[Rfam]
Rfam assigns this 76-nucleotide sequence from Crocodylus porosus to the family "Mammalian CPEB3 ribozyme". Rfam links the family to the GO term RNA nuclease activity. Rfam's curators write: The mammalian CPEB3 ribozyme is a self cleaving RNA located in the second intron of the CPEB3 gene which belongs to a family of genes regulating messenger RNA polyadenylation.

RNA sequence: UUGCAAGUUCAAAGCCACAGCAGAAGUGCUCAGCUAUGCGGCCUUGUCAGAUUCCAGCAAAUCUGUGAUUUCUGCU
Numbered sequence: 001u002u003g004c005a006a007g008u009u010c011a012a013a014g015c016c017a018c019a020g021c022a023g024a025a026g027u028g029c030u031c032a033g034c035u036a037u038g039c040g041g042c043c044u045u046g047u048c049a050g051a052u053u054c055c056a057g058c059a060a061a062u063c064u065g066u067g068a069u070u071u072c073u074g075c076u
Stems, first nucleotide, its partner, number of pairs: 011044001014042003019076007026039003048065006